[Rfam]
RNA sequence: AAAUAGCCCUGAUGGAAAUGGAAAUCCUCCCGCUGUCGCUACGAGGGACGAAGCAAUGAUGCGGGAGAUUGUAAUAAACAGCAGGACGAGAA
Number, nucleotide and partner (000 for none) at each position: 001a000002a000003a000004u000005a000006g000007c000008c000009c084010u083011g082012a000013u080014g079015g000016a000017a000018a075019u074020g000021g000022a000023a070024a069025u068026c067027c000028u000029c065030c064031c063032g062033c061034u000035g060036u059037c058038g000039c000040u000041a000042c000043g000044a000045g000046g000047g000048a000049c000050g000051a000052a000053g000054c000055a000056a000057u000058g037059a036060u035061g033062c032063g031064g030065g029066a000067g026068a025069u024070u023071g000072u000073a000074a019075u018076a000077a000078a000079c014080a013081g000082c011083a010084g009085g000086a000087c000088g000089a000090g000091a000092a000
Rfam assigns this 92-nucleotide sequence from Flavobacterium cellulosilyticum to the family "Flavo-1 RNA". The family has 201 seed sequences and 7,497 matches in Rfam 15.1.